[Rfam]
RNA sequence: CUGAAGACUAAGAAAAUAGAGUCCUUAGUCAAGUGACUCUGCUUUUUAGACCUCUUAACUGAAAAGAUAGACAAACAGGUCUUUGUUUGCAAAUAAUUCAGACCUACUUAUCUCCCAACAGCA
Number, nucleotide and partner (000 for none) at each position: 001c000002u000003g054004a053005a000006g051007a000008c000009u000010a046011a045012g000013a000014a000015a000016a000017u041018a040019g039020a038021g037022u036023c035024c033025u032026u031027a000028g000029u000030c000031a026032a025033g024034u000035g023036a022037c021038u020039c019040u018041g017042c000043u000044u000045u011046u010047u000048a000049g000050a000051c006052c000053u004054c003055u000056u000057a000058a000059c000060u000061g000062a000063a000064a000065a000066g116067a000068u000069a113070g112071a111072c000073a109074a000075a000076c000077a105078g104079g103080u102081c101082u100083u000084u000085g099086u000087u000088u000089g000090c000091a000092a000093a000094u000095a000096a000097u000098u000099c085100a082101g081102a080103c079104c078105u077106a000107c000108u000109u073110a000111u071112c070113u069114c000115c000116c066117a000118a000119c000120a000121g000122c000123a000
RNA: Small Cajal body specific RNA 15